[Rfam]
RNA sequence: AAAAAGGGCUUCUGCCGUGUGUGGCACGGGGCGGCCGCACGGCUGCCCCCGCGGAAUCGACAUCAAGAGAUUUCGGAAGCACAAUUUUUGUAGCGGGGGGUCGCCGGUAAUCGCUUGUUCCGGCGCCCCG
Numbered sequence: 001a002a003a004a005a006g007g008g009c010u011u012c013u014g015c016c017g018u019g020u021g022u023g024g025c026a027c028g029g030g031g032c033g034g035c036c037g038c039a040c041g042g043c044u045g046c047c048c049c050c051g052c053g054g055a056a057u058c059g060a061c062a063u064c065a066a067g068a069g070a071u072u073u074c075g076g077a078a079g080c081a082c083a084a085u086u087u088u089u090g091u092a093g094c095g096g097g098g099g100g101u102c103g104c105c106g107g108u109a110a111u112c113g114c115u116u117g118u119u120c121c122g123g124c125g126c127c128c129c130g
Stems, first nucleotide, its partner, number of pairs: 008080005013026005027051004031046006052075007098128004103124005109119003
Dot-bracket structure: .......((((((((((....)))))((((((((((....)))))).))))(((((((..........)))))))))))).................((((.(((((.(((.....))))))))))))..
Shown here is a 130-nucleotide RNA sequence from Alca torda, a member of the family "U11 spliceosomal RNA". The family is grouped with related families in Rfam's "U1 clan". Lineage of the source: Eukaryota > Metazoa > Tetrapoda > Theropoda > Alca. It is annotated as a spliceosomal small nuclear RNA. A search with the family's covariance model found it, with a score of 111 bits.